[Rfam]
RNA sequence: UCUGGCAAUGAUGAUCCUCUUGCCCUCACUGAGAACUUGGUUCUAUAAUGAGAGCAUUUCAGAAGUACUCACUUGCUCUGAGCCGGA
Dot-bracket structure: ((((((...........................................................................))))))
The family of this 87-nucleotide sequence from Salvator merianae is "Small nucleolar RNA SNORD103/SNORD85". Rfam 15.1 lists 1,349 matches to the family in 595 species. On this family, see Huttenhofer et al., EMBO J 2001: "RNomics: an experimental approach that identifies 201 candidates for novel, small, non-messenger RNAs in mouse". The family's RNA type in Rfam is C/D-box small nucleolar RNA. The pairing is the family consensus, mapped onto this sequence.